Rfam assigns this 223-nucleotide sequence to the family "PAGEV RNA".
The sequence is in the family's curated seed alignment.

RNA sequence: GCGGGCUUGGAUUCAUGAUGCUGUGGGCCCGCAUCACAGCGCGUCAAGCGGGUGAUCACGGGGAUCUCCAUCACACCCGCCGGUAUAGCCGCGUCUGCUUAAAGUAGGCCGCCAGAGGAAGCUCGCAUCGCUUCUGGUGCUCCGAAUUUCAUAUAGCAGCACGCGCCGCACGCCGUGGAGGGGUGGGCCGAGUUGGAUACGGCUCAGAAAGUGCGGGACGCCG
Numbered sequence: 001g002c003g004g005g006c007u008u009g010g011a012u013u014c015a016u017g018a019u020g021c022u023g024u025g026g027g028c029c030c031g032c033a034u035c036a037c038a039g040c041g042c043g044u045c046a047a048g049c050g051g052g053u054g055a056u057c058a059c060g061g062g063g064a065u066c067u068c069c070a071u072c073a074c075a076c077c078c079g080c081c082g083g084u085a086u087a088g089c090c091g092c093g094u095c096u097g098c099u100u101a102a103a104g105u106a107g108g109c110c111g112c113c114a115g116a117g118g119a120a121g122c123u124c125g126c127a128u129c130g131c132u133u134c135u136g137g138u139g140c141u142c143c144g145a146a147u148u149u150c151a152u153a154u155a156g157c158a159g160c161a162c163g164c165g166c167c168g169c170a171c172g173c174c175g176u177g178g179a180g181g182g183g184u185g186g187g188c189c190g191a192g193u194u195g196g197a198u199a200c201g202g203c204u205c206a207g208a209a210a211g212u213g214c215g216g217g218a219c220g221c222c223g
Base pairs, nucleotide, nucleotide: 001032002031003030004029005028006027007026048080049079050078051077052076053075067179068178069177070176071175090165091164092163093162094161095159096158097157098156099155166216167215168214169213170212171211184206185205186204187203188202189201190200